[Rfam]
RNA sequence: UGAUUGAUUGAUGCACAGAUAGAAUGGACUCCCUGCUCUAAUUGUUACAAGCUCUUCCCAAAUAAACCUGCCUUUUGAUGACCCGACAAAUUGAGGGAAAUCAUAAUGGAUAUAUACAAGGCAGAUACAG
Numbered sequence: 001u002g003a004u005u006g007a008u009u010g011a012u013g014c015a016c017a018g019a020u021a022g023a024a025u026g027g028a029c030u031c032c033c034u035g036c037u038c039u040a041a042u043u044g045u046u047a048c049a050a051g052c053u054c055u056u057c058c059c060a061a062a063u064a065a066a067c068c069u070g071c072c073u074u075u076u077g078a079u080g081a082c083c084c085g086a087c088a089a090a091u092u093g094a095g096g097g098a099a100a101u102c103a104u105a106a107u108g109g110a111u112a113u114a115u116a117c118a119a120g121g122c123a124g125a126u127a128c129a130g
Base pairs, nucleotide, nucleotide: 002058006054007053015045016044017043018042022038023037025035068124069123070122071121072120073119074118082109083108086104089101

Shown here is a 130-nucleotide sequence from Monodelphis domestica, a member of the family "Small Cajal body specific RNA 8". The family's consensus secondary structure is taken from published work. scaRNAs are a specific class of small nuclear RNAs which localise to the Cajal bodies and guide the modification of RNA polymerase II transcribed spliceosomal RNAs U1, U2, U4, U5 and U12. U92 belong to the H/ACA box class of guide RNAs as it has the predicted hairpin-hinge-hairpin-tail structure, conserved H/ACA-box motifs and is found associated with GAR1. For this family Rfam cites "Cajal body-specific small nuclear RNAs: a novel class of 2'-O-methylation and pseudouridylation guide RNAs" (Darzacq et al., EMBO J, 2002).